[Rfam]
RNA sequence: AGGCACCUACGGGGGCCUUCAAUAUAGCGAACCCAAGGGCAACCCCUAAGGUUUCGCGUGCUAAACGGAAGACAGAAA
Numbered sequence: 001a002g003g004c005a006c007c008u009a010c011g012g013g014g015g016c017c018u019u020c021a022a023u024a025u026a027g028c029g030a031a032c033c034c035a036a037g038g039g040c041a042a043c044c045c046c047u048a049a050g051g052u053u054u055c056g057c058g059u060g061c062u063a064a065a066c067g068g069a070a071g072a073c074a075g076a077a078a
Base pairs, nucleotide, nucleotide: 001018002017003016004015006014007013008012027057028056029055030054031053033051
This 78-nucleotide RNA from Antarcticimicrobium sediminis belongs to the Rfam family "L2-Alphaproteobacteria ribosomal protein leader". The source organism's lineage runs through Bacteria, Pseudomonadati, Pseudomonadota, Paracoccaceae and Antarcticimicrobium. Rfam classes the family as a cis-regulatory leader. The base pairs follow the family's consensus structure, which is taken from published work. For this family Rfam cites "Discovery of 20 novel ribosomal leader candidates in bacteria and archaea" (Eckert and Weinberg, BMC Microbiol, 2020).